[Rfam]
RNA sequence: CUCUUAUUCGGAGUUGGUGGAGGGACAGACCCGAUGAAACCCGGCAACCAUCACAAAUUGUGAAAAGGUGCUAAUCUGGUGCAAGGUAAAUCCUUGAUCAAUAAGAG
Dot-bracket structure: ((((((((....(..(((...(((.[[.[)))......))))((((.((.(((.......)))...))))))....]..]](((((.....)))))...))))))))